[Rfam]
A member of the RNA family "F6 TB sRNA" from Antrihabitans stalactiti, 57 nucleotides long.
RNA sequence: UAGACGGCUCCGCGCUGCUGCCCGACCCCCGACCCGGCAGCCGCGCGGGGCCUUCUA
Numbered sequence: 001u002a003g004a005c006g007g008c009u010c011c012g013c014g015c016u017g018c019u020g021c022c023c024g025a026c027c028c029c030c031g032a033c034c035c036g037g038c039a040g041c042c043g044c045g046c047g048g049g050g051c052c053u054u055c056u057a
Base pairs, nucleotide, nucleotide: 002056003055004054007051008050009049010048011047012046013045014044015043017041018040019039020038021037022036
Record summary
For this family Rfam cites "Identification of small RNAs in Mycobacterium tuberculosis" (Arnvig and Young, Mol Microbiol, 2009). Rfam 15.1 lists 310 matches to the family in 304 species. A search with the family's covariance model found it, with a score of 64 bits. By type it is a small RNA.